[Rfam]
RNA sequence: UUCUUAUUUAGAGCAGGUGGAGGGACAAGCCCUACGAAGCCCGGCAACCGGUCCAGCAAUGGACACGGUGCUAAUUCUUGCAGCCAGAAAUGAAUGGCUGAGAAAUAAGAA
Numbered sequence: 001u002u003c004u005u006a007u008u009u010a011g012a013g014c015a016g017g018u019g020g021a022g023g024g025a026c027a028a029g030c031c032c033u034a035c036g037a038a039g040c041c042c043g044g045c046a047a048c049c050g051g052u053c054c055a056g057c058a059a060u061g062g063a064c065a066c067g068g069u070g071c072u073a074a075u076u077c078u079u080g081c082a083g084c085c086a087g088a089a090a091u092g093a094a095u096g097g098c099u100g101a102g103a104a105a106u107a108a109g110a111a
Stems, first nucleotide, its partner, number of pairs: 001111008013042001016041003022032003026080004043072004048068002050064001052062002076103001081100006